[Rfam]
RNA sequence: UUUAGAUUCAUGUAGAAAACUUAUAUAUGCUCAUAAUCGGAUGAGUGUUUCUACCAACUACCGCAAUAGUUGACUAUGAGUUUUCGCAUCCCUGCC
Numbered sequence: 001u002u003u004a005g006a007u008u009c010a011u012g013u014a015g016a017a018a019a020c021u022u023a024u025a026u027a028u029g030c031u032c033a034u035a036a037u038c039g040g041a042u043g044a045g046u047g048u049u050u051c052u053a054c055c056a057a058c059u060a061c062c063g064c065a066a067u068a069g070u071u072g073a074c075u076a077u078g079a080g081u082u083u084u085c086g087c088a089u090c091c092c093u094g095c096c
Base pairs, nucleotide, nucleotide: 018082019081020080021079022078023077024076025075029046030045031044032043033042034041055072056071057070058069059068060067
A member of the RNA family "Purine riboswitch aptamer" from Enterocloster lavalensis, 96 nucleotides long. Its family is annotated with purine nucleobase biosynthetic process in the Gene Ontology. Its Rfam clan is "Purine riboswitches".